[Rfam]
RNA: ssnA RNA
RNA sequence: ACACCUCCGGCUGUAAGGAAGUGCUUCGCGCACGGGCCCUUUUUAGGG
Numbered sequence: 001a002c003a004c005c006u007c008c009g010g011c012u013g014u015a016a017g018g019a020a021g022u023g024c025u026u027c028g029c030g031c032a033c034g035g036g037c038c039c040u041u042u043u044u045a046g047g048g
Stems, first nucleotide, its partner, number of pairs: 009038004021033004